[Rfam]
RNA sequence: GGUUGCAAGUUUGAGGCCACUGCAGAAGUACUUAUGGUACAGCCCUGUCAGACUCCAACAAAUCUGCAAAUUCUGCG
Numbered sequence: 001g002g003u004u005g006c007a008a009g010u011u012u013g014a015g016g017c018c019a020c021u022g023c024a025g026a027a028g029u030a031c032u033u034a035u036g037g038u039a040c041a042g043c044c045c046u047g048u049c050a051g052a053c054u055c056c057a058a059c060a061a062a063u064c065u066g067c068a069a070a071u072u073c074u075g076c077g
Base pairs, nucleotide, nucleotide: 013045015044016043017042021077022076023075024074025073026072027071028040029039030038049066050065051064052063054061
This 77-nucleotide RNA sequence from Crocodylus porosus belongs to the Rfam family "Mammalian CPEB3 ribozyme". A search with the family's covariance model found it, with a score of 44 bits. The base pairs follow the family's consensus structure, which is taken from published work. Taxonomically the source falls in Crocodylus (Eukaryota, Gnathostomata, Teleostomi, Archosauria).